[Rfam]
RNA sequence: CCCCCCGAAGCGGAUCCCAGUCCGGCCCGCCCUGAGGUUGCCGGUUGGGUAGGGCACUGAUUGGGAGUCCGGGGACCGAAAGGUCCCAGCUCCCUUUCAAACCCCGAACCGACCGGCACCGUAGAUGGGCGGAGACGGGUUCUGGCGGAUAAGCCGCCAGGCCGAGAGGGGAACAACCCAGACCGGGGUUAAGGCCCCCAAGUGCCGGCUAAAGUGUCAAGCCAGAAGGGUGUCCCCCGCCUUAGACAGCGGGGCCGUAGGCUUAGAAGCAGCCAUCGGCUAAGAAGUGCGUAACAGCUUACCCGCCGAGGCGGGGGGCCCCGAAGAUUACCGGGACUAAGCCGGCCGCCGAGACCCCGGGGCACCCCGCAUUGCGGGGUGAUCCGGUAGGGGGGCGUCCAGGUGGACUGGAAGCCGGGCCGUGAGGUCCGGUGGAUCCGCCUGGAAUGAAAAU
Numbered sequence: 001c002c003c004c005c006c007g008a009a010g011c012g013g014a015u016c017c018c019a020g021u022c023c024g025g026c027c028c029g030c031c032c033u034g035a036g037g038u039u040g041c042c043g044g045u046u047g048g049g050u051a052g053g054g055c056a057c058u059g060a061u062u063g064g065g066a067g068u069c070c071g072g073g074g075a076c077c078g079a080a081a082g083g084u085c086c087c088a089g090c091u092c093c094c095u096u097u098c099a100a101a102c103c104c105c106g107a108a109c110c111g112a113c114c115g116g117c118a119c120c121g122u123a124g125a126u127g128g129g130c131g132g133a134g135a136c137g138g139g140u141u142c143u144g145g146c147g148g149a150u151a152a153g154c155c156g157c158c159a160g161g162c163c164g165a166g167a168g169g170g171g172a173a174c175a176a177c178c179c180a181g182a183c184c185g186g187g188g189u190u191a192a193g194g195c196c197c198c199c200a201a202g203u204g205c206c207g208g209c210u211a212a213a214g215u216g217u218c219a220a221g222c223c224a225g226a227a228g229g230g231u232g233u234c235c236c237c238c239g240c241c242u243u244a245g246a247c248a249g250c251g252g253g254g255c256c257g258u259a260g261g262c263u264u265a266g267a268a269g270c271a272g273c274c275a276u277c278g279g280c281u282a283a284g285a286a287g288u289g290c291g292u293a294a295c296a297g298c299u300u301a302c303c304c305g306c307c308g309a310g311g312c313g314g315g316g317g318g319c320c321c322c323g324a325a326g327a328u329u330a331c332c333g334g335g336a337c338u339a340a341g342c343c344g345g346c347c348g349c350c351g352a353g354a355c356c357c358c359g360g361g362g363c364a365c366c367c368c369g370c371a372u373u374g375c376g377g378g379g380u381g382a383u384c385c386g387g388u389a390g391g392g393g394g395g396c397g398u399c400c401a402g403g404u405g406g407a408c409u410g411g412a413a414g415c416c417g418g419g420c421c422g423u424g425a426g427g428u429c430c431g432g433u434g435g436a437u438c439c440g441c442c443u444g445g446a447a448u449g450a451a452a453a454u
Stems, first nucleotide, its partner, number of pairs: 001395006011024005026134001027132006036120003040117008052105001053103002059098002063094006072087006138163002141161007168179003183360007193350003202347001204346006228322003232319010249306005255279003260274003280284001285300001289298002361385002363381005396449001398446010414433008

Background: Shown here is a 454-nucleotide part of an RNA from Thermofilum pendens, a member of the family "Archaeal large subunit ribosomal RNA". The base pairs follow the family's consensus structure, which is taken from published work. It is one of the family's seed sequences. NCBI's taxonomy places the organism under Archaea, Thermoproteati, Thermofilales, Thermofilum, Thermofilum pendens. For this family Rfam cites "Crystal structure of the ribosome at 5.5 A resolution" (Yusupov et al., Science, 2001).